[Rfam]
RNA sequence: GCCUUCUCACUGAGCUCUUCUCUGCCAAUCUGUGGCAGUUUAUGGGUCCACACGAGAAGAGACAAUUCACAGAGCUGGCAUUGUUUUGCUUCCUGUCUUCAGAGGUGUGUUUAGCUGUUUUGUGAGACAUUA
Numbered sequence: 001g002c003c004u005u006c007u008c009a010c011u012g013a014g015c016u017c018u019u020c021u022c023u024g025c026c027a028a029u030c031u032g033u034g035g036c037a038g039u040u041u042a043u044g045g046g047u048c049c050a051c052a053c054g055a056g057a058a059g060a061g062a063c064a065a066u067u068c069a070c071a072g073a074g075c076u077g078g079c080a081u082u083g084u085u086u087u088g089c090u091u092c093c094u095g096u097c098u099u100c101a102g103a104g105g106u107g108u109g110u111u112u113a114g115c116u117g118u119u120u121u122g123u124g125a126g127a128c129a130u131u132a
Stems, first nucleotide, its partner, number of pairs: 003059006014051001016046003022038005067125006089105004094101002
Small nucleolar RNA SNORA75: a 132-nucleotide sequence from Phyllostomus discolor. A search with the family's covariance model found it, with a score of 93 bits. The source organism's lineage runs through Eukaryota, Euteleostomi, Boreoeutheria, Chiroptera and Phyllostomus. Rfam describes the family as follows. U23 belongs to the H/ACA class of snoRNAs. snoRNAs bind a number of proteins (including dyskerin, Gar1p and Nop10p in the case of the H/ACA class) to form snoRNP complexes. This class are thought to guide the sites of modification of uridines to pseudouridines by forming direct base pairing interactions with substrate RNAs. The literature on the family includes a 1997 paper in Genes Dev by Ganot et al., "The family of box ACA small nucleolar RNAs is defined by an evolutionarily conserved secondary structure and ubiquitous sequence elements essential for RNA accumulation". The base pairs follow the family's consensus structure, which was predicted with PFOLD.